[Rfam]
RNA sequence: GGGGUCGACUGGUUUUGACAGCGGGUGGAAUUGGAAAGUAAGCACGCCGAGAACUGGGACAAUUCUCGUUAAUAAAAGGUUUCAAAAUUUUACACGGCGAAAAUAAUUACGCUUUAGCUGCUUAAUCUGAAUCAUAGUAAGAUUUGCCUCGUUCCUACCAGGUAGGAAAGCUGGAUUCUCCUCGAAAGCCUUGGUUUAUGGCGUUCGGCUUAGGGGAACCGUAAAAGUAAACCUAGGAAGGGUAACGCUUUAAAUCCCUUCUGACAUUUAAAAAGCUAAGCAAAAAGUGGCGGUUUCCGGCCUUGCUUUUUGUCGAAAACCCAAUCGGAAACUAAGCGUGUAGAAAGCUCUUCGAUUGCUCGUUUGGACGAGAGUUCGAUUCUCUCCGACUCCACAU
Dot-bracket structure: (((((((...........(((((((((..((((((.(((...((((((((((...[[[[[...)))))..........]]]]].............................(((.((((..............)))).))).................................((((((.((((.(((...[[[[[[))).)))).....))))))........]]]]]]...((((((.....[.[[[.....))))))..........]]].]..((((((((((((.[[[[[.[)))..)))))))))...........].].]]]]...)))))......))).)))))))))))).)))...(((((.......))))))))))))....
Numbered sequence: 001g002g003g004g005u006c007g008a009c010u011g012g013u014u015u016u017g018a019c020a021g022c023g024g025g026u027g028g029a030a031u032u033g034g035a036a037a038g039u040a041a042g043c044a045c046g047c048c049g050a051g052a053a054c055u056g057g058g059a060c061a062a063u064u065c066u067c068g069u070u071a072a073u074a075a076a077a078g079g080u081u082u083c084a085a086a087a088u089u090u091u092a093c094a095c096g097g098c099g100a101a102a103a104u105a106a107u108u109a110c111g112c113u114u115u116a117g118c119u120g121c122u123u124a125a126u127c128u129g130a131a132u133c134a135u136a137g138u139a140a141g142a143u144u145u146g147c148c149u150c151g152u153u154c155c156u157a158c159c160a161g162g163u164a165g166g167a168a169a170g171c172u173g174g175a176u177u178c179u180c181c182u183c184g185a186a187a188g189c190c191u192u193g194g195u196u197u198a199u200g201g202c203g204u205u206c207g208g209c210u211u212a213g214g215g216g217a218a219c220c221g222u223a224a225a226a227g228u229a230a231a232c233c234u235a236g237g238a239a240g241g242g243u244a245a246c247g248c249u250u251u252a253a254a255u256c257c258c259u260u261c262u263g264a265c266a267u268u269u270a271a272a273a274a275g276c277u278a279a280g281c282a283a284a285a286a287g288u289g290g291c292g293g294u295u296u297c298c299g300g301c302c303u304u305g306c307u308u309u310u311u312g313u314c315g316a317a318a319a320c321c322c323a324a325u326c327g328g329a330a331a332c333u334a335a336g337c338g339u340g341u342a343g344a345a346a347g348c349u350c351u352u353c354g355a356u357u358g359c360u361c362g363u364u365u366g367g368a369c370g371a372g373a374g375u376u377c378g379a380u381u382c383u384c385u386c387c388g389a390c391u392c393c394a395c396a397u
Stems, first nucleotide, its partner, number of pairs: 001393007019366003022362006030356006037349003043340005048068005056083005113142003117138004176218006183207004188202003194232006236262006247277001249275003280313009289302003293332004297327001299325001370386005